RNA: Small nucleolar RNA Z13/snr52
Organism: Paraphaeosphaeria minitans
RNA sequence: UAGGGUACAAUGAUUAAACAUUUUCGGAUGUAAACCAUUUAAACCACCGAGAGCGCAAAACCGUGUGGAUAUCUUCCGUUGCCUUCCUUCUGAGUACCCCU
Numbered sequence: 001u002a003g004g005g006u007a008c009a010a011u012g013a014u015u016a017a018a019c020a021u022u023u024u025c026g027g028a029u030g031u032a033a034a035c036c037a038u039u040u041a042a043a044c045c046a047c048c049g050a051g052a053g054c055g056c057a058a059a060a061c062c063g064u065g066u067g068g069a070u071a072u073c074u075u076c077c078g079u080u081g082c083c084u085u086c087c088u089u090c091u092g093a094g095u096a097c098c099c100c101u
Base pairs, nucleotide, nucleotide: 003100004099005098025078026077027076028075